[Rfam]
RNA sequence: AUUCUGUGAUGAUACAAUUGAAGGCUUGUUUCUCUAAACAUUCGCAGUGGCCGCCUAAGAUCUUUUGCCUUCGCCGGGCUUGAGAGAUAAUGCUGCUUUUAUCCUUCCUUGGAUGUCUGAGAUC
Numbered sequence: 001a002u003u004c005u006g007u008g009a010u011g012a013u014a015c016a017a018u019u020g021a022a023g024g025c026u027u028g029u030u031u032c033u034c035u036a037a038a039c040a041u042u043c044g045c046a047g048u049g050g051c052c053g054c055c056u057a058a059g060a061u062c063u064u065u066u067g068c069c070u071u072c073g074c075c076g077g078g079c080u081u082g083a084g085a086g087a088u089a090a091u092g093c094u095g096c097u098u099u100u101a102u103c104c105u106u107c108c109u110u111g112g113a114u115g116u117c118u119g120a121g122a123u124c
Stems, first nucleotide, its partner, number of pairs: 003122002061087006
A member of the RNA family "Small nucleolar RNA SNORD14" from Solanum commersonii, 124 nucleotides long. Rfam describes the family as follows. U14 small nucleolar RNA (U14 snoRNA) is required for early cleavages of eukaryotic precursor rRNAs. In yeasts, this molecule possess a stem-loop region (known as the Y-domain) which is essential for function. Rfam classes the family as a C/D-box small nucleolar RNA.